The family of this 58-nucleotide RNA from Devosia sp. A8/3-2 is "sul1 RNA". It scores 40 bits against the family's covariance model. Lineage of the source: Bacteria > Pseudomonadota > Hyphomicrobiales > Devosiaceae > Devosia.

RNA sequence: GUCGGACUCAGGGCUAUGUCCCGGGUGGCUUCUCCAGGCGCCUAUCCCCCGGUCACCA
Number, nucleotide and partner (000 for none) at each position: 001g000002u000003c000004g000005g000006a026007c025008u024009c023010a000011g021012g019013g000014c000015u000016a000017u000018g000019u012020c000021c011022c000023g009024g008025g007026u006027g000028g000029c000030u000031u000032c000033u000034c052035c051036a000037g049038g048039c000040g000041c000042c000043u000044a000045u000046c000047c000048c038049c037050c000051g035052g034053u000054c000055a000056c000057c000058a000